[Rfam]
RNA sequence: GAUUUCAAUUGAAAAAGUCAUCAACAAAAAAGUUGAAUAACUUAUCAAGAUCUAAAACUUUUAUUUUUGUUAUUUCUUCAUCCGACGAAAUGUUAGUAAUAUUAUUCACAAAUUUUACAUAUAUGUGUUAAAGUUUAUAAAACCAGAUAAGAGAUAUGACAAUUUUAUAAAUAAUGUUACCAUCACUUUGUCGUAUGAAGAAAUAACCACAAUAAAAGUUUUAGAUCUUGAAGAGUUAUUCAACUUUGUUGUUGAUGACUUUUUCAGUUGAUAUC
Number, nucleotide and partner (000 for none) at each position: 001g000002a000003u000004u000005u000006c000007a000008a000009u000010u000011g000012a000013a000014a262015a261016a260017g259018u258019c257020a256021u255022c000023a253024a252025c000026a250027a249028a000029a000030a246031a245032g244033u243034u242035g241036a240037a239038u238039a237040a236041c235042u234043u000044a000045u231046c230047a229048a228049g227050a226051u225052c224053u223054a000055a221056a220057a219058c218059u217060u216061u215062u214063a213064u212065u211066u000067u209068u000069g207070u206071u205072a204073u203074u202075u201076c000077u199078u198079c197080a196081u195082c000083c193084g192085a191086c190087g189088a188089a187090a000091u185092g184093u000094u182095a000096g180097u179098a178099a177100u000101a175102u174103u173104a172105u171106u170107c000108a168109c000110a166111a165112a164113u000114u162115u161116u000117a000118c158119a157120u156121a155122u154123a000124u000125g000126u000127g000128u000129u000130a000131a000132a000133g143134u142135u141136u140137a000138u000139a000140a136141a135142a134143c133144c000145a000146g000147a000148u000149a000150a000151g000152a000153g000154a122155u121156a120157u119158g118159a000160c000161a115162a114163u000164u112165u111166u110167a000168u108169a000170a106171a105172u104173a103174a102175u101176g000177u099178u098179a097180c096181c000182a094183u000184c092185a091186c000187u089188u088189u087190g086191u085192c084193g083194u000195a081196u080197g079198a078199a077200g000201a075202a074203a073204u072205a071206a070207c069208c000209a067210c000211a065212a064213u063214a062215a061216a060217a059218g058219u057220u056221u055222u000223a053224g052225a051226u050227c049228u048229u047230g046231a045232a000233g000234a042235g041236u040237u039238a038239u037240u036241c035242a034243a033244c032245u031246u030247u000248g000249u027250u026251g000252u024253u023254g000255a021256u020257g019258a018259c017260u016261u015262u014263u000264u000265c000266a000267g000268u000269u000270g000271a000272u000273a000274u000275c000
MIR821 microRNA precursor family: a 275-nucleotide RNA from Oryza sativa.